[Rfam]
RNA: Mason-Pfizer monkey virus packaging signal
Organism: Octodon degus
RNA sequence: UGGCGCCCAAUGCGGUGCUCUGGCAUGGGUGAUCCAGUGAGGGACACCGGUCGUCAGCCUGGCCAGCACCCUCUCCUCAGGAGGUUGACUCGUCGUGGGAGCCUGCCGCUUCGCGUCCCCUCAGUAAGUGACUGGCGAUUCAUUAUGGGACAGGCAAUUAGUGAACAUGAAAUGUUUCUUCAAGGCUUAGAAAAAGCUCUCAGGGCAUGAGGAAUGAAGGUUAAAGGUAAAAAUUUGUCUAAGUAUUUUGCAUAUGUAAAGGAGGUCUGUCCCU
Numbered sequence: 001u002g003g004c005g006c007c008c009a010a011u012g013c014g015g016u017g018c019u020c021u022g023g024c025a026u027g028g029g030u031g032a033u034c035c036a037g038u039g040a041g042g043g044a045c046a047c048c049g050g051u052c053g054u055c056a057g058c059c060u061g062g063c064c065a066g067c068a069c070c071c072u073c074u075c076c077u078c079a080g081g082a083g084g085u086u087g088a089c090u091c092g093u094c095g096u097g098g099g100a101g102c103c104u105g106c107c108g109c110u111u112c113g114c115g116u117c118c119c120c121u122c123a124g125u126a127a128g129u130g131a132c133u134g135g136c137g138a139u140u141c142a143u144u145a146u147g148g149g150a151c152a153g154g155c156a157a158u159u160a161g162u163g164a165a166c167a168u169g170a171a172a173u174g175u176u177u178c179u180u181c182a183a184g185g186c187u188u189a190g191a192a193a194a195a196g197c198u199c200u201c202a203g204g205g206c207a208u209g210a211g212g213a214a215u216g217a218a219g220g221u222u223a224a225a226g227g228u229a230a231a232a233a234u235u236u237g238u239c240u241a242a243g244u245a246u247u248u249u250g251c252a253u254a255u256g257u258a259a260a261g262g263a264g265g266u267c268u269g270u271c272c273c274u
Stems, first nucleotide, its partner, number of pairs: 006029003012024002035049001037047002083122002089115001091113001095109004132153003139149004161197002208250005214244002218236005259274001261272003
Dot-bracket structure: .....(((...((.........))..))).....(.((.......)).).................................((....(.(...((((.......))))...).).....)).........(((....((((...)))).))).......((.................................))..........(((((.((..(((((.........)))))......)).)))))........(.(((......))).)